The family of this 68-nucleotide sequence from Neogobius melanostomus is "mir-29 microRNA precursor family".
The source organism's lineage runs through Eukaryota, Neopterygii, Euteleosteomorpha, Acanthomorphata and Neogobius.
About the family: This family represents the microRNA (miRNA) precursors mir-29.
The base pairs follow the family's consensus structure, which was predicted with PFOLD.
The family has 168 seed sequences and 3,328 matches in Rfam 15.1.

RNA sequence: AGGAGCUGGUUUUAGGCGGUGACGUAGAUCUGACCUUUAUGUCUAGCACCAUCUGAAAUCAGUGUUCU
Numbered sequence: 001a002g003g004a005g006c007u008g009g010u011u012u013u014a015g016g017c018g019g020u021g022a023c024g025u026a027g028a029u030c031u032g033a034c035c036u037u038u039a040u041g042u043c044u045a046g047c048a049c050c051a052u053c054u055g056a057a058a059u060c061a062g063u064g065u066u067c068u
Base pairs, nucleotide, nucleotide: 001068002067003066004065005063006062007061008060009059010058011057012056013055014054016052018050019049020048021047025045026044027043028042